[Rfam]
RNA: mir-2 microRNA precursor family
RNA sequence: CGGCCCGUCAAAGUGGUCGUGAUUUGUAGCUCAGUGUCAUAUCACAGCCAGCUUUGAUGUGCUGGA
Numbered sequence: 001c002g003g004c005c006c007g008u009c010a011a012a013g014u015g016g017u018c019g020u021g022a023u024u025u026g027u028a029g030c031u032c033a034g035u036g037u038c039a040u041a042u043c044a045c046a047g048c049c050a051g052c053u054u055u056g057a058u059g060u061g062c063u064g065g066a
Stems, first nucleotide, its partner, number of pairs: 006059008014050004019045004025041003